[Rfam]
RNA sequence: GAUAUUUGAGGUGGUAAAUUUCGUUGCAACCACACACCCAUUGGGUCAAAAGAGAUGCUAUAGAGGCGACGGUAGCCAAAUAUC
Numbered sequence: 001g002a003u004a005u006u007u008g009a010g011g012u013g014g015u016a017a018a019u020u021u022c023g024u025u026g027c028a029a030c031c032a033c034a035c036a037c038c039c040a041u042u043g044g045g046u047c048a049a050a051a052g053a054g055a056u057g058c059u060a061u062a063g064a065g066g067c068g069a070c071g072g073u074a075g076c077c078a079a080a081u082a083u084c
Stems, first nucleotide, its partner, number of pairs: 001084008011033005023070005035052001036046004057076005

The record is an 84-nucleotide sequence, which matches "skipping-rope RNA" in Rfam.
Rfam's curators put it in the seed alignment.
By type it is a small RNA.